[Rfam]
RNA sequence: GGAUUUAUGAUGAGCUGUGAUUACUGAGCAUGAUGAAAUAAAGCUCAAAAUGAUGACUCUGAAGUCU
Numbered sequence: 001g002g003a004u005u006u007a008u009g010a011u012g013a014g015c016u017g018u019g020a021u022u023a024c025u026g027a028g029c030a031u032g033a034u035g036a037a038a039u040a041a042a043g044c045u046c047a048a049a050a051u052g053a054u055g056a057c058u059c060u061g062a063a064g065u066c067u
Stems, first nucleotide, its partner, number of pairs: 001067005012059003021052001025047005